[Rfam]
RNA sequence: CGAUGUCUGAGGGGAAGGGGCCUUUAGUACGAGAGGAACAAGGGCUCGUGACCUCUAGUUUACCGGUUGUCUGGCAAGGCAUCGCCGGGUAGCCACGUCAUACGCGGAUAAGAGCUGAAAGCAUCUAAGCUCGAAGCCGCCCCCGAAAAUAGACAUCGUCAUCAGAUCGCCUCUAGAAGAGAGGUUUGAUAGAGCCGGGAUGUAAGGAUCGAGCUUCGGCGAGAUUUUAAGUCCACGGCUACUAAAGAUCGAAGG
Numbered sequence: 001c002g003a004u005g006u007c008u009g010a011g012g013g014g015a016a017g018g019g020g021c022c023u024u025u026a027g028u029a030c031g032a033g034a035g036g037a038a039c040a041a042g043g044g045c046u047c048g049u050g051a052c053c054u055c056u057a058g059u060u061u062a063c064c065g066g067u068u069g070u071c072u073g074g075c076a077a078g079g080c081a082u083c084g085c086c087g088g089g090u091a092g093c094c095a096c097g098u099c100a101u102a103c104g105c106g107g108a109u110a111a112g113a114g115c116u117g118a119a120a121g122c123a124u125c126u127a128a129g130c131u132c133g134a135a136g137c138c139g140c141c142c143c144c145g146a147a148a149a150u151a152g153a154c155a156u157c158g159u160c161a162u163c164a165g166a167u168c169g170c171c172u173c174u175a176g177a178a179g180a181g182a183g184g185u186u187u188g189a190u191a192g193a194g195c196c197g198g199g200a201u202g203u204a205a206g207g208a209u210c211g212a213g214c215u216u217c218g219g220c221g222a223g224a225u226u227u228u229a230a231g232u233c234c235a236c237g238g239c240u241a242c243u244a245a246a247g248a249u250c251g252a253a254g255g
Stems, first nucleotide, its partner, number of pairs: 001158008011144004017047003021043004048101005056095001058093001063088005068081005105139003112132005165250004169185005190244003193240005198234003206227005213220001
Annotation:
Archaeal large subunit ribosomal RNA: a 255-nucleotide part of an RNA from Thermoplasma acidophilum. The source organism's lineage runs through Archaea, Methanobacteriati, Thermoplasmatota, Thermoplasmataceae and Thermoplasma. Pairs were carried over by alignment from the consensus structure, which is taken from published work. Rfam 15.1 lists 2,955 matches to the family in 1,139 species. Rfam's curators put it in the seed alignment.